[Rfam]
RNA sequence: UGCAAAAUGAUGAGAAACUUGGAUCUGGAAUGGAUAACAAACACAUAUAAGGUCUUCAAAGUUCUCGGAUUGCC
Numbered sequence: 001u002g003c004a005a006a007a008u009g010a011u012g013a014g015a016a017a018c019u020u021g022g023a024u025c026u027g028g029a030a031u032g033g034a035u036a037a038c039a040a041a042c043a044c045a046u047a048u049a050a051g052g053u054c055u056u057c058a059a060a061g062u063u064c065u066c067g068g069a070u071u072g073c074c
Base pairs, nucleotide, nucleotide: 002073003072004071005070
Shown here is a 74-nucleotide sequence from Ananas comosus, a member of the family "Small nucleolar RNA R160". The family has 9 seed sequences and 799 matches in Rfam 15.1. Rfam's curators write: snoR160 is a C/D box small nucleolar RNA, which acts as a methylation guide for 25S ribosomal RNA in plants. snoR160 has been alternatively named snoZ270 in rice. By type it is a C/D-box small nucleolar RNA. Lineage of the source: Eukaryota > Mesangiospermae > Liliopsida > Bromeliaceae > Ananas. A search with the family's covariance model found it, with a score of 49 bits.